[Rfam]
RNA sequence: AUCUUUAAACAGGAAUAAAAAACCUGUCGGCUGUGGCAGUCUCCCUUCCCAGCCAUGGAAGAGCAUAUUCUUGUUUAUUGGCAAAGCUGUCACCAUUUAAUUGGUAUCAGAUUCUGACUUGCACAAGUAACAUUC
Number, nucleotide and partner (000 for none) at each position: 001a056002u055003c000004u000005u000006u000007a000008a000009a000010c000011a000012g044013g043014a042015a000016u000017a000018a000019a000020a000021a000022a000023c000024c039025u038026g037027u036028c035029g000030g000031c000032u000033g000034u000035g028036g027037c026038a025039g024040u000041c000042u014043c013044c012045c000046u000047u000048c000049c000050c000051a000052g000053c000054c000055a002056u001057g000058g000059a000060a000061g000062a000063g000064c000065a000066u000067a000068u000069u000070c000071u000072u132073g131074u130075u129076u000077a000078u126079u125080g124081g122082c121083a120084a119085a000086g000087c110088u109089g108090u000091c000092a105093c104094c103095a102096u000097u000098u000099a000100a000101u000102u095103g094104g093105u092106a000107u000108c089109a088110g087111a000112u000113u000114c000115u000116g000117a000118c000119u084120u083121g082122c081123a000124c080125a079126a078127g000128u000129a075130a074131c073132a072133u000134u000135c000
RNA: Small nucleolar RNA SNORA24
Organism: Fukomys damarensis